[Rfam]
RNA sequence: UCAUCAGGUGGGAUAAUCUUUAUCUGUACCUCCUUUUGGAGGGCAGAUAGAAAAUGAGGAUUGGAGCAUCGCAUGACACGUGAUUAAUGUGCUGCAUAGUCAGGACUUGCAACAUCCUGAUUGCUCCUGUCUGAU
Numbered sequence: 001u002c003a004u005c006a007g008g009u010g011g012g013a014u015a016a017u018c019u020u021u022a023u024c025u026g027u028a029c030c031u032c033c034u035u036u037u038g039g040a041g042g043g044c045a046g047a048u049a050g051a052a053a054a055u056g057a058g059g060a061u062u063g064g065a066g067c068a069u070c071g072c073a074u075g076a077c078a079c080g081u082g083a084u085u086a087a088u089g090u091g092c093u094g095c096a097u098a099g100u101c102a103g104g105a106c107u108u109g110c111a112a113c114a115u116c117c118u119g120a121u122u123g124c125u126c127c128u129g130u131c132u133g134a135u
Base pairs, nucleotide, nucleotide: 024046025045026044029042030041031040032039033038075092078090079089080088081086097123098122099121100120101119102118103117104116
Source information: A member of the RNA family "U8 small nucleolar RNA" from Octodon degus, 135 nucleotides long. Lineage of the source: Eukaryota > Bilateria > Chordata > Theria > Octodon. For this family Rfam cites "The U8 snoRNA gene family: identification and characterization of distinct, functional U8 genes in Xenopus" (Peculis et al., Gene, 2001). It is annotated as a C/D-box small nucleolar RNA.